[Rfam]
Shown here is a 275-nucleotide RNA sequence from Oryza meridionalis, a member of the family "MIR821 microRNA precursor family". Lineage of the source: Eukaryota > Embryophyta > Poaceae > Oryzeae > Oryza. The literature on the family includes a 2006 paper in FEBS Lett by Luo et al., "Rice embryogenic calli express a unique set of microRNAs, suggesting regulatory roles of microRNAs in plant post-embryogenic development". The family's consensus secondary structure was predicted with RNAalifold.
RNA sequence: GACUUCAACUGAAAAGGUCAUCAACAACAAAGUUGUAUAAUCCAUCUAGAUCUACAAUUUUUAUUUUGGUCAUUUGUUCAUCCGAUAAAGUGAUAGUAAUAUUGUUCACAAAUUUUACAUAUCUACCAUAUGAUUUCAUAAAUUAUAAGAGAGAUGUGUAAAUUUUGUGAACAAUGUUACUGUCACGUUAUCGGAUGAAGAAAUUACCAAAAUAAAAGUUAUAGAUAUUGAUGAGUUAUACAACUUUGUUGUUGAUGACUUUUUCAGUUGAAAUC
Numbered sequence: 001g002a003c004u005u006c007a008a009c010u011g012a013a014a015a016g017g018u019c020a021u022c023a024a025c026a027a028c029a030a031a032g033u034u035g036u037a038u039a040a041u042c043c044a045u046c047u048a049g050a051u052c053u054a055c056a057a058u059u060u061u062u063a064u065u066u067u068g069g070u071c072a073u074u075u076g077u078u079c080a081u082c083c084g085a086u087a088a089a090g091u092g093a094u095a096g097u098a099a100u101a102u103u104g105u106u107c108a109c110a111a112a113u114u115u116u117a118c119a120u121a122u123c124u125a126c127c128a129u130a131u132g133a134u135u136u137c138a139u140a141a142a143u144u145a146u147a148a149g150a151g152a153g154a155u156g157u158g159u160a161a162a163u164u165u166u167g168u169g170a171a172c173a174a175u176g177u178u179a180c181u182g183u184c185a186c187g188u189u190a191u192c193g194g195a196u197g198a199a200g201a202a203a204u205u206a207c208c209a210a211a212a213u214a215a216a217a218g219u220u221a222u223a224g225a226u227a228u229u230g231a232u233g234a235g236u237u238a239u240a241c242a243a244c245u246u247u248g249u250u251g252u253u254g255a256u257g258a259c260u261u262u263u264u265c266a267g268u269u270g271a272a273a274u275c
Stems, first nucleotide, its partner, number of pairs: 014262008023253002026250002030246012044232003048228001050226004056220012069207002072204004077199005083193006090186003094182006101175012114162002117159006131145006